[Rfam]
RNA sequence: UCAUUGCGAUGAUGAAUUAUGAAUAAACUUCGCAUGUCAGACUUCGGAGAUGCCUUUUGGCAUCCAUGAGAAGAUGUUUCAUAAGACUGACCAAUGC
Numbered sequence: 001u002c003a004u005u006g007c008g009a010u011g012a013u014g015a016a017u018u019a020u021g022a023a024u025a026a027a028c029u030u031c032g033c034a035u036g037u038c039a040g041a042c043u044u045c046g047g048a049g050a051u052g053c054c055u056u057u058u059g060g061c062a063u064c065c066a067u068g069a070g071a072a073g074a075u076g077u078u079u080c081a082u083a084a085g086a087c088u089g090a091c092c093a094a095u096g097c
Base pairs, nucleotide, nucleotide: 002096003095004094005093006092049064050063051062052061053060054059